[Rfam]
RNA: Nitrogen stress-induced RNA 1
Organism: Phormidium nigroviride
RNA sequence: UAGUAGAUGCACCCUGAUUAAAUAACUCCCGACCAAUUUUGGUGGGGUUUUUUUU
Numbered sequence: 001u002a003g004u005a006g007a008u009g010c011a012c013c014c015u016g017a018u019u020a021a022a023u024a025a026c027u028c029c030c031g032a033c034c035a036a037u038u039u040u041g042g043u044g045g046g047g048u049u050u051u052u053u054u055u
Stems, first nucleotide, its partner, number of pairs: 003012002025048005031043001033041001035039001